About this RNA: A member of the RNA family "U1 spliceosomal RNA" from Drosophila melanogaster, 165 nucleotides long. U1 is a small nuclear RNA (snRNA) component of the spliceosome (involved in pre-mRNA splicing). Its 5' end forms complementary base pairs with the 5' splice junction, thus defining the 5' donor site of an intron. There are significant differences in sequence and secondary structure between metazoan and yeast U1 snRNAs, the latter being much longer (568 nucleotides as compared to 164 nucleotides in human). Rfam's curators put it in the seed alignment. By type it is a spliceosomal small nuclear RNA.
RNA sequence: AUACUUACCUGGCGUAGAGGUUAACCGUGAUCACGAAGGCGGUUCCUCCGGAGUGAGGCUUGGCCAUUGCACCUCGGCUGAGUUGACCUCUGCGAUUAUUCCUAAUGUGAAUAACUCGUGCGUGUAAUUUUUGUUAGCCGGGAAUGGCGUUCGCGCCGUCCCGAC
Numbered sequence: 001a002u003a004c005u006u007a008c009c010u011g012g013c014g015u016a017g018a019g020g021u022u023a024a025c026c027g028u029g030a031u032c033a034c035g036a037a038g039g040c041g042g043u044u045c046c047u048c049c050g051g052a053g054u055g056a057g058g059c060u061u062g063g064c065c066a067u068u069g070c071a072c073c074u075c076g077g078c079u080g081a082g083u084u085g086a087c088c089u090c091u092g093c094g095a096u097u098a099u100u101c102c103u104a105a106u107g108u109g110a111a112u113a114a115c116u117c118g119u120g121c122g123u124g125u126a127a128u129u130u131u132u133g134u135u136a137g138c139c140g141g142g143a144a145u146g147g148c149g150u151u152c153g154c155g156c157c158g159u160c161c162c163g164a165c
Stems, first nucleotide, its partner, number of pairs: 012123004017048004024043005050091004055087001057084003061080005093118003096114003100110002139163004144159001146157004
Dot-bracket structure: ...........((((.((((...(((((..........))))).)))).((((.(.(((.(((((..........))))).)))..))))).((((((.((.......)).))).))).))))...............((((.(.((((....)))).)))))..